[Rfam]
RNA: TPP riboswitch aptamer (THI element)
Organism: Halopseudomonas pachastrellae
RNA sequence: GACAUCUUGACGGGGUGCUGCUUGCAAAGCGGCUGAGAUGAUACCCGUUGAACCUGAACCGGCUAGCACCGGCGUAGGAAUCGAGAUAGACGACAAA
Number, nucleotide and partner (000 for none) at each position: 001g000002a000003c000004a000005u000006c085007u084008u083009g082010a081011c047012g046013g045014g044015g000016u041017g033018c032019u031020g030021c029022u000023u000024g000025c000026a000027a000028a000029g021030c020031g019032g018033c017034u000035g000036a000037g000038a000039u000040g000041a016042u000043a000044c014045c013046c012047g011048u000049u000050g000051a000052a000053c078054c077055u076056g075057a000058a000059c072060c071061g070062g069063c000064u000065a000066g000067c000068a000069c062070c061071g060072g059073c000074g000075u056076a055077g054078g053079a000080a000081u010082c009083g008084a007085g006086a000087u000088a000089g000090a000091c000092g000093a000094c000095a000096a000097a000